Overview:
Rfam assigns this 89-nucleotide RNA sequence from Caenorhabditis remanei to the family "mir-46/mir-47/mir-281 microRNA precursor family". The base pairs follow the family's consensus structure, which was predicted with RNAalifold. The source organism's lineage runs through Eukaryota, Bilateria, Rhabditina, Rhabditidae and Caenorhabditis.
[Rfam]
RNA sequence: AGGAGGUAAAGCUGAAGAGAGCCGUCUAUUGACAGUUCGUUUCUAUACUUAUGUACUGUCAUGGAGUCGCUCUCUUCAGAUGAUCCUUU
Numbered sequence: 001a002g003g004a005g006g007u008a009a010a011g012c013u014g015a016a017g018a019g020a021g022c023c024g025u026c027u028a029u030u031g032a033c034a035g036u037u038c039g040u041u042u043c044u045a046u047a048c049u050u051a052u053g054u055a056c057u058g059u060c061a062u063g064g065a066g067u068c069g070c071u072c073u074c075u076u077c078a079g080a081u082g083a084u085c086c087u088u089u
Base pairs, nucleotide, nucleotide: 014077015076016075017074018073020071021070022069025065026064027063028062031060032059033058035056036055